[Rfam]
RNA sequence: UGUCGUCCAUGACGACCACCAAUGAUCCCACGGCCUGAGAGGAUCGCCUUCGGGUGGCACAUAACACUCCUGUAGCCUGAAAGGGAGAACACAUCAGUGUGGUACAUCUGCCCACCUUUGGAAGCAGAUAUCGUCGACAACAACGCGCCU
Numbered sequence: 001u002g003u004c005g006u007c008c009a010u011g012a013c014g015a016c017c018a019c020c021a022a023u024g025a026u027c028c029c030a031c032g033g034c035c036u037g038a039g040a041g042g043a044u045c046g047c048c049u050u051c052g053g054g055u056g057g058c059a060c061a062u063a064a065c066a067c068u069c070c071u072g073u074a075g076c077c078u079g080a081a082a083g084g085g086a087g088a089a090c091a092c093a094u095c096a097g098u099g100u101g102g103u104a105c106a107u108c109u110g111c112c113c114a115c116c117u118u119u120g121g122a123a124g125c126a127g128a129u130a131u132c133g134u135c136g137a138c139a140a141c142a143a144c145g146c147g148c149c150u
Base pairs, nucleotide, nucleotide: 002016003015004014005013006012007011024045025044026043027042028041033058034057035056046055047054048053067087068086069085070084072105073104074103076102077101089100090099091098107128108127109126110125111124113147115145117143118142131140
The family of this 150-nucleotide RNA sequence from Corythaeola cristata is "STAXI RNA". A search with the family's covariance model found it, with a score of 72 bits. Lineage of the source: Eukaryota > Metazoa > Deuterostomia > Dinosauria > Corythaeola.